[Rfam]
Small nucleolar RNA SNORA48: a 138-nucleotide RNA from Mus spicilegus.
The source organism's lineage runs through Eukaryota, Tetrapoda, Mammalia, Murinae and Mus.
The family has 24 seed sequences and 2,109 matches in Rfam 15.1.
A reference for the family is Ofengand and Bakin (1997), "Mapping to nucleotide resolution of pseudouridine residues in large subunit ribosomal RNAs from representative eukaryotes, prokaryotes, archaebacteria, mitochondria and chloroplasts", J Mol Biol.
Rfam's curators write: The snoRNA ACA 48 has been identified to guide pseudouridylation of the residue U3797 in the 28S rRNA subunit.
It is annotated as an H/ACA-box small nucleolar RNA.
RNA sequence: UAUCCUUGCAAUGGGCAGAGACACUGAGUUGGUGGUGUUUUUAUAGCAGUCAGAGGCAAAGCAAAUGGCAGUCCCUUGUUCAUCCUAGCGUGUUGCCUGGCUUGGUGGUCAAAGCUGUUUUAUGCUUAAGACACAUUA
Numbered sequence: 001u002a003u004c005c006u007u008g009c010a011a012u013g014g015g016c017a018g019a020g021a022c023a024c025u026g027a028g029u030u031g032g033u034g035g036u037g038u039u040u041u042u043a044u045a046g047c048a049g050u051c052a053g054a055g056g057c058a059a060a061g062c063a064a065a066u067g068g069c070a071g072u073c074c075c076u077u078g079u080u081c082a083u084c085c086u087a088g089c090g091u092g093u094u095g096c097c098u099g100g101c102u103u104g105g106u107g108g109u110c111a112a113a114g115c116u117g118u119u120u121u122a123u124g125c126u127u128a129a130g131a132c133a134c135a136u137u138a
Stems, first nucleotide, its partner, number of pairs: 001058001003056002006053003012048002018042002020039006077133004092126001094124001098122003103117002106114001